[Rfam]
RNA: Small nucleolar RNA SNORA81
RNA sequence: ACCGUGUUGUUAAGCAGUGUGUAAAAAAUUACAAAAAGUAGGAUCAUGUCUUGGAUUUUGCAAUAAUGCUAGGAGAUUUCUCAGAAGAAAAGUAGCUGCAUUAGGCCCCCUAAUACUAUACUGAACCUCUUUCUUAAUAUCCAGUGUCUUAAUACUUGGUGAAAUAUGU
Numbered sequence: 001a002c003c004g005u006g007u008u009g010u011u012a013a014g015c016a017g018u019g020u021g022u023a024a025a026a027a028a029u030u031a032c033a034a035a036a037a038g039u040a041g042g043a044u045c046a047u048g049u050c051u052u053g054g055a056u057u058u059u060g061c062a063a064u065a066a067u068g069c070u071a072g073g074a075g076a077u078u079u080c081u082c083a084g085a086a087g088a089a090a091a092g093u094a095g096c097u098g099c100a101u102u103a104g105g106c107c108c109c110c111u112a113a114u115a116c117u118a119u120a121c122u123g124a125a126c127c128u129c130u131u132u133c134u135u136a137a138u139a140u141c142c143a144g145u146g147u148c149u150u151a152a153u154a155c156u157u158g159g160u161g162a163a164a165u166a167u168g169u
Base pairs, nucleotide, nucleotide: 017077018076020074022072024070028067029066030065031064034058035057039053040052041051042050043049044048097163099161100160101159102158103157104156105155118147120145122143123142125140